[Rfam]
RNA: Actinobacteria sRNA Ms_IGR-7
Organism: Solihabitans fulvus
RNA sequence: CAGAAAGGUGCUCCUGAACUGGUUCGGACAUGACCCUCGACAAGUCAUAUCCUUGCAGUUCAGGGCACCUUUCUCCUGUAUCGACACCCAUCACACCGAAUUAG
Numbered sequence: 001c002a003g004a005a006a007g008g009u010g011c012u013c014c015u016g017a018a019c020u021g022g023u024u025c026g027g028a029c030a031u032g033a034c035c036c037u038c039g040a041c042a043a044g045u046c047a048u049a050u051c052c053u054u055g056c057a058g059u060u061c062a063g064g065g066c067a068c069c070u071u072u073c074u075c076c077u078g079u080a081u082c083g084a085c086a087c088c089c090a091u092c093a094c095a096c097c098g099a100a101u102u103a104g
Stems, first nucleotide, its partner, number of pairs: 002074012015062003019058002022056002026052003031047001033045002